[Rfam]
RNA sequence: UGGCAGCCAAUUAAGCUGAUUGUGCUCUUUUCCCCAUGGGGACCCAGUGUGCAGUGGCUGCAAACAACAGCCUUCUUGGUAGCGUAUGCAGCUUGUUACCCAUACAGGUUGCCCUAAGGGACCUUGGAGCAACUC
Dot-bracket structure: ..(((.............((((...(((..........)))...)))).))).........................(((........((((((...........)))))).........)))............

Record summary
Rfam assigns this 135-nucleotide RNA sequence from Bison bison to the family "Small nucleolar RNA SNORA70". Rfam 15.1 lists 5,173 matches to the family in 383 species. About the family: snoRNA U70 seems to be exclusive to mammals and is a member of the H/ACA class of snoRNA which contain H (ANANNA) and ACA box motifs. H/ACA box snoRNAs are involved in the conversion of uridines to pseudouridines (5-ribosyluracil) a constituent of structural RNAs (transfer, ribosomal, small nuclear, and small nucleolar). The family's RNA type in Rfam is H/ACA-box small nucleolar RNA. A reference for the family is Charette and Gray (2000), "Pseudouridine in RNA: what, where, how, and why", IUBMB Life. Gene Ontology terms of the family: RNA processing and nucleolus.